[Rfam]
Rfam assigns this 159-nucleotide sequence from Cavia porcellus to the family "Human acetyl-coA cholesterol acyltransferase mRNA".
RNA sequence: CAGCAUAGCUGUGGUGGGCGCUGUCGGCAUUGCGGGCCCAGGGCGAUGGGACAUCUUCCCGGGACCGACCUGUGUGCUGGUCCCGCAGUGACAGGUUUCCGACAUCUCUCGAUGGAGGCUCCCACAGCCCCGUGGGCUUGGGCCUCAGGGAGUUCUGGA
Numbered sequence: 001c002a003g004c005a006u007a008g009c010u011g012u013g014g015u016g017g018g019c020g021c022u023g024u025c026g027g028c029a030u031u032g033c034g035g036g037c038c039c040a041g042g043g044c045g046a047u048g049g050g051a052c053a054u055c056u057u058c059c060c061g062g063g064a065c066c067g068a069c070c071u072g073u074g075u076g077c078u079g080g081u082c083c084c085g086c087a088g089u090g091a092c093a094g095g096u097u098u099c100c101g102a103c104a105u106c107u108c109u110c111g112a113u114g115g116a117g118g119c120u121c122c123c124a125c126a127g128c129c130c131c132g133u134g135g136g137c138u139u140g141g142g143c144c145u146c147a148g149g150g151a152g153u154u155c156u157g158g159a
Base pairs, nucleotide, nucleotide: 014028047101049099050098051097053096054095055094057091058090060088061086063084067082069080070079111144113142118139121136122135123134124133
The match comes from Rfam's covariance-model search (66 bits).